[Rfam]
T-box leader: a 206-nucleotide RNA sequence from Clostridioides difficile.
Rfam links the family to the GO term tRNA binding.
By type it is a cis-regulatory leader.
Pairs were carried over by alignment from the consensus structure, which is taken from published work.
RNA sequence: UAAAAAGCUGUGAAGGAAAAUAGUAAAAAACAGAUUGUAUUCAGAGAAUGAGUGGAUGGUGAAAACUCAUUACAAUGGUUUUUGAAUCUACUCUAGAGCUUCUAGUUAAAGCUAGACGUUUACCUACGUUAUAGGUCUGAGAGGAUUAUACAUUUUAGUAUAGUCAAUUAGGGUGGCAACGCGGAUAAAAGAUUUUCGUCCCUUUU
Dot-bracket structure: ......((......(((........((((((.....(((........((((((...........)))))))))....))))))........)))...))..(((((....))))).(((......)))...............(((((((........)))))))....((((.......(((((.........)))))))))...
Numbered sequence: 001u002a003a004a005a006a007g008c009u010g011u012g013a014a015g016g017a018a019a020a021u022a023g024u025a026a027a028a029a030a031c032a033g034a035u036u037g038u039a040u041u042c043a044g045a046g047a048a049u050g051a052g053u054g055g056a057u058g059g060u061g062a063a064a065a066c067u068c069a070u071u072a073c074a075a076u077g078g079u080u081u082u083u084g085a086a087u088c089u090a091c092u093c094u095a096g097a098g099c100u101u102c103u104a105g106u107u108a109a110a111g112c113u114a115g116a117c118g119u120u121u122a123c124c125u126a127c128g129u130u131a132u133a134g135g136u137c138u139g140a141g142a143g144g145a146u147u148a149u150a151c152a153u154u155u156u157a158g159u160a161u162a163g164u165c166a167a168u169u170a171g172g173g174u175g176g177c178a179a180c181g182c183g184g185a186u187a188a189a190a191g192a193u194u195u196u197c198g199u200c201c202c203u204u205u206u
Stems, first nucleotide, its partner, number of pairs: 007099002015094003026083006037073003048070006102115005117128003144165007170203004181199005

About the family: Uncharged tRNA acts as the effector for transcription antitermination of genes in the T-box leader family.